[Rfam]
RNA sequence: CAUCGGCCCCAUGUUGCGUUGCUGUGUGAUUUGAAAUCAGCAAACGCACAUGGGGUUGACG
Numbered sequence: 001c002a003u004c005g006g007c008c009c010c011a012u013g014u015u016g017c018g019u020u021g022c023u024g025u026g027u028g029a030u031u032u033g034a035a036a037u038c039a040g041c042a043a044a045c046g047c048a049c050a051u052g053g054g055g056u057u058g059a060c061g
Base pairs, nucleotide, nucleotide: 001061003059005057006056007055008054009053010052011051012050013049014048016047017046018045019044020043021041022040023039024038
The family of this 61-nucleotide sequence from Panagrellus redivivus is "mir-7948 microRNA precursor family". The organism belongs to Panagrellus, within Eukaryota. The sequence is in the family's curated seed alignment.